[Rfam]
Overview:
Rfam assigns this 295-nucleotide RNA sequence from Gehongia tenuis to the family "raiA RNA".
RNA sequence: UCGUCUUAGGUCUGUGGUUGAAAAUCGAUGCCAGUCGCAGGCGAAACGAUCCACGUAAGUUUGGAAAAUCCAAAUGAGCAUGGUGCGGUUUAGAUGUAAGACCGGCCAGGUGCGAGCGAAUCCACGCAAAGGGAACAUUCCAAAAGGUUUUUGGCAAUGCUGGACCCUCUUGGAAUCGACCUUCGCGAGAUUCGUUUUUUUGUGCCUGAGAGAAGCAGUAGUGGGGAGCGAAAUGCUUAGUAGCGAACCUUCCUGCCGGCGGGUGUGGGGGCAAAGACCAGGUCAGCUGAGACGA
Numbered sequence: 001u002c003g004u005c006u007u008a009g010g011u012c013u014g015u016g017g018u019u020g021a022a023a024a025u026c027g028a029u030g031c032c033a034g035u036c037g038c039a040g041g042c043g044a045a046a047c048g049a050u051c052c053a054c055g056u057a058a059g060u061u062u063g064g065a066a067a068a069u070c071c072a073a074a075u076g077a078g079c080a081u082g083g084u085g086c087g088g089u090u091u092a093g094a095u096g097u098a099a100g101a102c103c104g105g106c107c108a109g110g111u112g113c114g115a116g117c118g119a120a121u122c123c124a125c126g127c128a129a130a131g132g133g134a135a136c137a138u139u140c141c142a143a144a145a146g147g148u149u150u151u152u153g154g155c156a157a158u159g160c161u162g163g164a165c166c167c168u169c170u171u172g173g174a175a176u177c178g179a180c181c182u183u184c185g186c187g188a189g190a191u192u193c194g195u196u197u198u199u200u201u202g203u204g205c206c207u208g209a210g211a212g213a214a215g216c217a218g219u220a221g222u223g224g225g226g227a228g229c230g231a232a233a234u235g236c237u238u239a240g241u242a243g244c245g246a247a248c249c250u251u252c253c254u255g256c257c258g259g260c261g262g263g264u265g266u267g268g269g270g271g272c273a274a275a276g277a278c279c280a281g282g283u284c285a286g287c288u289g290a291g292a293c294g295a
Stems, first nucleotide, its partner, number of pairs: 001295009012286003015280005028266003031041001033090007050083002058075001060073002063070002081273001102259005107208010212252004221244002227237003
Dot-bracket structure: (((((((((..((((((((........((([.(((((((.]........((......(.((.((....)).)).).....[)))))))))...........(((((((((((((((..................................................................................))))))))))...((((.....((....(((.....))).....))....))))..)))))....)))......]..)))))...))))))))))))